[Rfam]
A member of the RNA family "Small nucleolar RNA SNORA51" from Neolamprologus brichardi, 136 nucleotides long. By type it is an H/ACA-box small nucleolar RNA. Gene Ontology terms of the family: nucleolus and RNA processing. Pairs were carried over by alignment from the consensus structure, which was predicted with PFOLD. Lineage of the source: Eukaryota > Opisthokonta > Craniata > Euacanthomorphacea > Neolamprologus.

RNA sequence: GUCCUCCUAAUGCUUACCACAGACAGCACACCUCAGAGUGCUGACUGUAUAGAAACAGGAGGUACAUCAGUUACUCCCAACACUUCUGCUCUGCCAGCUGUUAUCUGGUGAGGCAACACUGUUGGGUGGAACAUCG
Numbered sequence: 001g002u003c004c005u006c007c008u009a010a011u012g013c014u015u016a017c018c019a020c021a022g023a024c025a026g027c028a029c030a031c032c033u034c035a036g037a038g039u040g041c042u043g044a045c046u047g048u049a050u051a052g053a054a055a056c057a058g059g060a061g062g063u064a065c066a067u068c069a070g071u072u073a074c075u076c077c078c079a080a081c082a083c084u085u086c087u088g089c090u091c092u093g094c095c096a097g098c099u100g101u102u103a104u105c106u107g108g109u110g111a112g113g114c115a116a117c118a119c120u121g122u123u124g125g126g127u128g129g130a131a132c133a134u135c136g
Stems, first nucleotide, its partner, number of pairs: 003062006020047003026041004074128001076126004088114003092110006